The record is a 100-nucleotide RNA from Neobacillus vireti, which matches "Purine riboswitch aptamer" in Rfam.
The organism belongs to Neobacillus vireti, within Bacteria.

RNA sequence: ACUAUUAAACUAUAUAGUACCUGUAUAACCUCAAGAAUAUGGCUUGAGGGUCUCUACCAGGAACCAUAAAAUCCUGAUUACAGAAAAUGAAUUUAUUCGU
Numbered sequence: 001a002c003u004a005u006u007a008a009a010c011u012a013u014a015u016a017g018u019a020c021c022u023g024u025a026u027a028a029c030c031u032c033a034a035g036a037a038u039a040u041g042g043c044u045u046g047a048g049g050g051u052c053u054c055u056a057c058c059a060g061g062a063a064c065c066a067u068a069a070a071a072u073c074c075u076g077a078u079u080a081c082a083g084a085a086a087a088u089g090a091a092u093u094u095a096u097u098c099g100u
Stems, first nucleotide, its partner, number of pairs: 018086001021083005029049007058076005